[Rfam]
RNA sequence: GUAGUUGGAUUCACAUCGGUCCACAUGGGUUGAGGUGGAUUUGAGUAGAACUUGAACUAAAUUCCACCCAAUCCACCCCAACAUAUGUGGAUUGAAAUGAAUCUGGCA
Dot-bracket structure: ...((((((((((..((((((((((((.((((..(((((((...((...................))..)))))))..)))).))))))))))))..)))))))))).
RNA: MIR5565 microRNA precursor family
Organism: Miscanthus lutarioriparius